RNA sequence: UGCAGAUGAUGCUAACUUUUUUGCUGUUUAAACACACUUGAUGACGACCACCAAGAUCGCUGAUGCA
Numbered sequence: 001u002g003c004a005g006a007u008g009a010u011g012c013u014a015a016c017u018u019u020u021u022u023g024c025u026g027u028u029u030a031a032a033c034a035c036a037c038u039u040g041a042u043g044a045c046g047a048c049c050a051c052c053a054a055g056a057u058c059g060c061u062g063a064u065g066c067a
Stems, first nucleotide, its partner, number of pairs: 001067004